[Rfam]
RNA sequence: AAGUGUUACAGCUUUUCUAUAACUUGUCUAUCAGGUUUUAUAGUUUCUACCAAAAAACCAAU
Dot-bracket structure: .................................((((((.(.((....)).).))))))...
Numbered sequence: 001a002a003g004u005g006u007u008a009c010a011g012c013u014u015u016u017c018u019a020u021a022a023c024u025u026g027u028c029u030a031u032c033a034g035g036u037u038u039u040a041u042a043g044u045u046u047c048u049a050c051c052a053a054a055a056a057a058c059c060a061a062u
Stems, first nucleotide, its partner, number of pairs: 034059006041052001043050002